[Rfam]
RNA sequence: GGGGACCUUCGGGGCCCUGUAAACCAUAGUCCCGGACCUGUCCGGGACGCCAAGCAAACGGAAGAAGCUA
Dot-bracket structure: ((((.(((...)))))))..........(((((((......)))))))......................
RNA: L2-Alphaproteobacteria ribosomal protein leader
Organism: Yoonia vestfoldensis